[Rfam]
RNA sequence: UGCACAGAUGAUGAAUACUUAGGGACUUAAUACUGAAUGUAUGUGAUGUGGUGAUUGCUCUGAUGUGC
Numbered sequence: 001u002g003c004a005c006a007g008a009u010g011a012u013g014a015a016u017a018c019u020u021a022g023g024g025a026c027u028u029a030a031u032a033c034u035g036a037a038u039g040u041a042u043g044u045g046a047u048g049u050g051g052u053g054a055u056u057g058c059u060c061u062g063a064u065g066u067g068c
Stems, first nucleotide, its partner, number of pairs: 002068005